[Rfam]
RNA sequence: UAAAGAGAUUUCAGAAUCAGGCCGGAGCGUACCGCGCUCCGUCUCCUCGGUCGUACAUCCAGCCGAUAGCCUGAUUCCUUGCAUUGAAGCGAUGUACGGAGUUUAAGAGC
Numbered sequence: 001u002a003a004a005g006a007g008a009u010u011u012c013a014g015a016a017u018c019a020g021g022c023c024g025g026a027g028c029g030u031a032c033c034g035c036g037c038u039c040c041g042u043c044u045c046c047u048c049g050g051u052c053g054u055a056c057a058u059c060c061a062g063c064c065g066a067u068a069g070c071c072u073g074a075u076u077c078c079u080u081g082c083a084u085u086g087a088a089g090c091g092a093u094g095u096a097c098g099g100a101g102u103u104u105a106a107g108a109g110c
Stems, first nucleotide, its partner, number of pairs: 008103001010101003014077009023041006048065003080096001082094003
The family of this 110-nucleotide sequence from Enterobacteriaceae bacterium strain FGI 57 is "iscR stability element". Taxonomically the source falls in Enterobacteriaceae (Bacteria, Pseudomonadati, Pseudomonadota, Gammaproteobacteria). Gene Ontology term of the family: response to host iron concentration. On this family, see Desnoyers et al., EMBO J 2009: "Small RNA-induced differential degradation of the polycistronic mRNA iscRSUA". It scores 104 bits against the family's covariance model. The base pairs follow the family's consensus structure, which is taken from published work. By type it is a cis-regulatory element.